The record is a 102-nucleotide RNA sequence from Clostridium carboxidivorans, which matches "TPP riboswitch aptamer (THI element)" in Rfam. A search with the family's covariance model found it, with a score of 69 bits.

RNA sequence: AAUUCGUUGUGGGGGUGCUGUAAGGCUGAGAAGAGAUUAUUCUCUAACCCUUUGAACCUGAUCUAGGUAAAACUGGCGUAGGGAAGCAGAUAUUUUAUGAUA
Numbered sequence: 001a002a003u004u005c006g007u008u009g010u011g012g013g014g015g016u017g018c019u020g021u022a023a024g025g026c027u028g029a030g031a032a033g034a035g036a037u038u039a040u041u042c043u044c045u046a047a048c049c050c051u052u053u054g055a056a057c058c059u060g061a062u063c064u065a066g067g068u069a070a071a072a073c074u075g076g077c078g079u080a081g082g083g084a085a086g087c088a089g090a091u092a093u094u095u096u097a098u099g100a101u102a
Stems, first nucleotide, its partner, number of pairs: 007089004011051004017026003033044004057082004063076004
Lineage of the source: Bacteria > Bacillati > Bacillota > Eubacteriales > Clostridium carboxidivorans.